[Rfam]
RNA sequence: UUAGAUAAUUCUAAGCGCAAACUUGGUCUGAUGAACUAAGAGUAUAUUCCGGAGUAUACUUUGACUUAAAGGCGUUAUAAAGAGUUGAAACCUGUACU
Numbered sequence: 001u002u003a004g005a006u007a008a009u010u011c012u013a014a015g016c017g018c019a020a021a022c023u024u025g026g027u028c029u030g031a032u033g034a035a036c037u038a039a040g041a042g043u044a045u046a047u048u049c050c051g052g053a054g055u056a057u058a059c060u061u062u063g064a065c066u067u068a069a070a071g072g073c074g075u076u077a078u079a080a081a082g083a084g085u086u087g088a089a090a091c092c093u094g095u096a097c098u
Stems, first nucleotide, its partner, number of pairs: 001014005015075004024038004039062010
Source information:
The family of this 98-nucleotide RNA sequence is "RAGATH-34 RNA". By type it is a small RNA.